This 117-nucleotide sequence from Streptomyces brasiliensis belongs to the Rfam family "Actinobacteria sRNA Ms_IGR-7".
[Rfam]
Nucleotides: 117
Base pairs, nucleotide, nucleotide: 002072003071004070005069006068007067008066009065010064011063012062013061015058017056018055019054020053023050024049025048026047029045031043032042097115098114099113100112
Number, partner (000 for none) and nucleotide at each position: 001000a002072g003071a004070a005069a006068g007067u008066g009065c010064c011063u012062u013061c014000c015058a016000c017056u018055u019054g020053g021000a022000c023050c024049g025048a026047u027000a028000g029045a030000a031043c032042c033000c034000c035000u036000c037000g038000a039000c040000a041000a042032g043031g044000u045029u046000c047026a048025u049024c050023g051000u052000c053020c054019c055018a056017g057000u058015u059000c060000a061013g062012a063011a064010g065009g066008c067007a068006c069005u070004u071003u072002c073000g074000c075000g076000u077000u078000c079000c080000c081000g082000g083000c084000c085000a086000c087000c088000g089000c090000u091000c092000g093000a094000c095000u096000c097115c098114g099113c100112c101000c102000c103000a104000a105000c106000c107000g108000a109000a110000a111000c112100g113099g114098c115097g116000a117000g